Overview: Small nucleolar RNA SNORD58: a 71-nucleotide RNA sequence from Clarias magur. Rfam 15.1 lists 2,484 matches to the family in 680 species. snoRNA U58 is found in introns 1, 3 and 6 of the ribosomal protein RPL17 gene in humans.
RNA sequence: GUACAAUGAUGACUAUCUUAGGACACCUUUGGAGGUCACGACCAAUGAAACAAAAUCAUAUUCUGAGUACG
Numbered sequence: 001g002u003a004c005a006a007u008g009a010u011g012a013c014u015a016u017c018u019u020a021g022g023a024c025a026c027c028u029u030u031g032g033a034g035g036u037c038a039c040g041a042c043c044a045a046u047g048a049a050a051c052a053a054a055a056u057c058a059u060a061u062u063c064u065g066a067g068u069a070c071g
Base pairs, nucleotide, nucleotide: 001070002069003068004067
Lineage of the source: Eukaryota > Opisthokonta > Vertebrata > Gnathostomata > Clarias. The literature on the family includes a 1996 paper in Cell by Kiss-Laszlo et al., "Site-specific ribose methylation of preribosomal RNA: a novel function for small nucleolar RNAs". It scores 60 bits against the family's covariance model. By type it is a C/D-box small nucleolar RNA. The family is grouped with related families in Rfam's "SNORD58 clan".